[Rfam]
RNA: mir-497 microRNA precursor family
Organism: Vombatus ursinus
RNA sequence: CCUACCCUCGCUCUAACACCACAGUGUGGUUUGGACUUGACCACAACACUGAACAAACCACAGUGUGCUGCUGGGGCGGAGGCAG
Numbered sequence: 001c002c003u004a005c006c007c008u009c010g011c012u013c014u015a016a017c018a019c020c021a022c023a024g025u026g027u028g029g030u031u032u033g034g035a036c037u038u039g040a041c042c043a044c045a046a047c048a049c050u051g052a053a054c055a056a057a058c059c060a061c062a063g064u065g066u067g068c069u070g071c072u073g074g075g076g077c078g079g080a081g082g083c084a085g
Stems, first nucleotide, its partner, number of pairs: 012082003015072001017070002020067004025062009036051001